[Rfam]
RNA sequence: CGGCCCGUCUCUUUGGUAUCCUAGCUGUAGGCGUCCCGUGAGCCCUAAAGUUAUGGUACCGAAGUUACGAGUCG
Numbered sequence: 001c002g003g004c005c006c007g008u009c010u011c012u013u014u015g016g017u018a019u020c021c022u023a024g025c026u027g028u029a030g031g032c033g034u035c036c037c038g039u040g041a042g043c044c045c046u047a048a049a050g051u052u053a054u055g056g057u058a059c060c061g062a063a064g065u066u067a068c069g070a071g072u073c074g
Base pairs, nucleotide, nucleotide: 001074002073003072004071007068008067011064012063013062014061015060016059017058018057019056020055022053023052024051025050026049028047029046030045031044
mir-9/mir-79 microRNA precursor family: a 74-nucleotide RNA from Manduca sexta. The family has 214 seed sequences and 5,647 matches in Rfam 15.1. Pairs were carried over by alignment from the consensus structure, which was predicted with RNAalifold.